RNA sequence: CUAGCUGAGGAGCGCUGCAAAUCCGGUCCGCCGGAACCAGGCUCAGCUAAAGAAACGGCGCUCGUUCCAA
Numbered sequence: 001c002u003a004g005c006u007g008a009g010g011a012g013c014g015c016u017g018c019a020a021a022u023c024c025g026g027u028c029c030g031c032c033g034g035a036a037c038c039a040g041g042c043u044c045a046g047c048u049a050a051a052g053a054a055a056c057g058g059c060g061c062u063c064g065u066u067c068c069a070a
Stems, first nucleotide, its partner, number of pairs: 002049007022035005
RNA: SAH (S-adenosyl-L-homocysteine) riboswitch aptamer
Organism: Fimbriimonadaceae bacterium